[Rfam]
RNA sequence: GACGUGCUCAUGACGGUCCGUCUUUAAACUCCACGGAGGAAGCGGACCCGAUGUCUAACGUC
Numbered sequence: 001g002a003c004g005u006g007c008u009c010a011u012g013a014c015g016g017u018c019c020g021u022c023u024u025u026a027a028a029c030u031c032c033a034c035g036g037a038g039g040a041a042g043c044g045g046a047c048c049c050g051a052u053g054u055c056u057a058a059c060g061u062c
Base pairs, nucleotide, nucleotide: 001062002061003060004059005058015048016047017046018045019044020043021042023040024039029038030037031036

The record is a 62-nucleotide sequence from Menidia menidia, which matches "Selenocysteine insertion sequence 1" in Rfam. The match comes from Rfam's covariance-model search (44 bits). Rfam's curators write: The incorporation of selenocysteine into a protein sequence is directed by an in-frame UGA codon (usually a stop codon) within the coding region of the mRNA. Selenoprotein mRNAs contain a conserved secondary structure in the 3' UTR that is required for the distinction of UGA stop from UGA selenocysteine. The selenocysteine insertion sequence (SECIS) is around 60 nt in length and adopts a hairpin structure which is sufficiently well-defined and conserved to act as a computational screen for selenoprotein genes. Rfam classes the family as a cis-regulatory element. For this family Rfam cites "A survey of metazoan selenocysteine insertion sequences" (Lambert et al., Biochimie, 2002). Pairs were carried over by alignment from the consensus structure, which is taken from published work. Rfam 15.1 lists 3,793 matches to the family in 721 species. Taxonomically the source falls in Menidia (Eukaryota, Craniata, Actinopteri, Osteoglossocephalai).